[Rfam]
RNA sequence: GGCGCGGGCCGUGACUGGCGCGUCAAGGUGGGACACCACCGGGGAGCGGUCCCGUCACCGCGACGUCCUGCCGUGCGCCUGGGCCUUCUAC
Numbered sequence: 001g002g003c004g005c006g007g008g009c010c011g012u013g014a015c016u017g018g019c020g021c022g023u024c025a026a027g028g029u030g031g032g033a034c035a036c037c038a039c040c041g042g043g044g045a046g047c048g049g050u051c052c053c054g055u056c057a058c059c060g061c062g063a064c065g066u067c068c069u070g071c072c073g074u075g076c077g078c079c080u081g082g083g084c085c086u087u088c089u090a091c
Stems, first nucleotide, its partner, number of pairs: 006052007015043002017079005028039004070084003
RNA: ZMP/ZTP riboswitch aptamer (pfl RNA motif)